The record is a 148-nucleotide RNA sequence from Momordica charantia, which matches "MIR828 microRNA precursor family" in Rfam. The organism belongs to Momordica, within Eukaryota. The family's consensus secondary structure was predicted with RNAalifold. Its family is annotated with miRNA-mediated post-transcriptional gene silencing and RISC complex in the Gene Ontology. The match comes from Rfam's covariance-model search (86 bits). The family has 16 seed sequences and 204 matches in Rfam 15.1.
RNA sequence: GCAAUGUUUCUUGCUCAAAUGAGUAUUCCAAACAGAGCAGCAGAUGCAAAUAUUGGAAAUUAAUGCACCAUUUCUCUCUCUCUAUAAUAUCUAUAUGGAUGCUACUGGUGCUUGCUUCUGCGAUGCUCAUUUGGGCAAGAAAUGUUGC
Numbered sequence: 001g002c003a004a005u006g007u008u009u010c011u012u013g014c015u016c017a018a019a020u021g022a023g024u025a026u027u028c029c030a031a032a033c034a035g036a037g038c039a040g041c042a043g044a045u046g047c048a049a050a051u052a053u054u055g056g057a058a059a060u061u062a063a064u065g066c067a068c069c070a071u072u073u074c075u076c077u078c079u080c081u082c083u084a085u086a087a088u089a090u091c092u093a094u095a096u097g098g099a100u101g102c103u104a105c106u107g108g109u110g111c112u113u114g115c116u117u118c119u120g121c122g123a124u125g126c127u128c129a130u131u132u133g134g135g136c137a138a139g140a141a142a143u144g145u146u147g148c
Stems, first nucleotide, its partner, number of pairs: 004145005010139018029120002